Shown here is a 119-nucleotide RNA from Tumebacillus algifaecis, a member of the family "ylbH leader". Gene Ontology term of the family: regulation of gene expression. A search with the family's covariance model found it, with a score of 75 bits. A reference for the family is Barrick et al. (2004), "New RNA motifs suggest an expanded scope for riboswitches in bacterial genetic control", Proc Natl Acad Sci U S A. The family's RNA type in Rfam is cis-regulatory leader. This family is a putative regulatory RNA structure that is found upstream of the ylbH gene in B. subtilis and related low GC Gram-positive bacteria.

[Rfam]
RNA sequence: AAAAAGAAAGACCCGCGUCCGGGUAUACGCGGGUUUUCGCUCACCGUUUGCACGGCAAGCACUGGGAGAGGAGAAACCGGAGGAAGAGGCUUAUGGGGAAACCUAAGUCUUCUCCGCGG
Numbered sequence: 001a002a003a004a005a006g007a008a009a010g011a012c013c014c015g016c017g018u019c020c021g022g023g024u025a026u027a028c029g030c031g032g033g034u035u036u037u038c039g040c041u042c043a044c045c046g047u048u049u050g051c052a053c054g055g056c057a058a059g060c061a062c063u064g065g066g067a068g069a070g071g072a073g074a075a076a077c078c079g080g081a082g083g084a085a086g087a088g089g090c091u092u093a094u095g096g097g098g099a100a101a102c103c104u105a106a107g108u109c110u111u112c113u114c115c116g117c118g119g
Base pairs, nucleotide, nucleotide: 011034012033013032014031015030016029017028018027035066036065037064039062044055045054046053078116079115080114081113083112084111085110086109089108090107091106092105093104